[Rfam]
RNA sequence: GGUGCUAAACCGGCUGUGCAAUAGACGAACCGGACGCGGUUUCGAAACCGCCACCUCCACCAGGAGUCCAUGGGCUCAAGAGCCAGACUGGCUCGGCAUGGGUUGCUGAUGGGGGUGAAAUGGGAUUGACGGGCGUUGAAAGACAGUUCGCUGUACUCGGCAUUGUACCACCGUUAUCGGGCUAAACUUGUAGUUGCAAACGACAACUAUGCGGAAGCACGUCUCGCUGCUUAA
Numbered sequence: 001g002g003u004g005c006u007a008a009a010c011c012g013g014c015u016g017u018g019c020a021a022u023a024g025a026c027g028a029a030c031c032g033g034a035c036g037c038g039g040u041u042u043c044g045a046a047a048c049c050g051c052c053a054c055c056u057c058c059a060c061c062a063g064g065a066g067u068c069c070a071u072g073g074g075c076u077c078a079a080g081a082g083c084c085a086g087a088c089u090g091g092c093u094c095g096g097c098a099u100g101g102g103u104u105g106c107u108g109a110u111g112g113g114g115g116u117g118a119a120a121u122g123g124g125a126u127u128g129a130c131g132g133g134c135g136u137u138g139a140a141a142g143a144c145a146g147u148u149c150g151c152u153g154u155a156c157u158c159g160g161c162a163u164u165g166u167a168c169c170a171c172c173g174u175u176a177u178c179g180g181g182c183u184a185a186a187c188u189u190g191u192a193g194u195u196g197c198a199a200a201c202g203a204c205a206a207c208u209a210u211g212c213g214g215a216a217g218c219a220c221g222u223c224u225c226g227c228u229g230c231u232u233a234a
Stems, first nucleotide, its partner, number of pairs: 001157005014146004026135002030132003036051004052117007158173003
permuted transfer-messenger RNA: a 234-nucleotide sequence from Aerobium aerolatum. It scores 128 bits against the family's covariance model. The family's consensus secondary structure is taken from published work. Lineage of the source: Bacteria > Pseudomonadati > Pseudomonadota > Alphaproteobacteria > Aerobium aerolatum.